Rfam assigns this 120-nucleotide RNA sequence from Pelagibacterium lacus to the family "Rhizobiales sRNA Atu_C8". A reference for the family is Wilms et al. (2012), "Deep sequencing uncovers numerous small RNAs on all four replicons of the plant pathogen Agrobacterium tumefaciens", RNA Biol.
[Rfam]
RNA sequence: CGUGAAGACGGCACUUAUUCUCGUAGUAGGCAGGCGCAUCGCAACAUGAGGGACUGACCCUCAUGCCAAUUGCGGUGCGCUGAUCCAGGUCCCAAACGGGGCCUUUUUUAUUUUCCAGAG
Number, nucleotide and partner (000 for none) at each position: 001c000002g000003u000004g000005a000006a000007g000008a000009c026010g000011g000012c000013a000014c000015u000016u000017a000018u000019u000020c000021u000022c000023g000024u000025a000026g009027u000028a000029g116030g115031c000032a113033g081034g080035c079036g078037c077038a076039u075040c074041g073042c072043a000044a000045c000046a000047u063048g062049a061050g060051g059052g058053a000054c000055u000056g000057a000058c052059c051060c050061u049062c048063a047064u000065g000066c000067c000068a000069a000070u000071u000072g042073c041074g040075g039076u038077g037078c036079g035080c034081u033082g000083a000084u000085c000086c000087a104088g103089g102090u101091c100092c099093c098094a000095a000096a000097c000098g093099g092100g091101g090102c089103c088104u087105u000106u000107u000108u000109u000110a000111u000112u000113u032114u000115c030116c029117a000118g000119a000120g000
Rfam classes the family as a small RNA.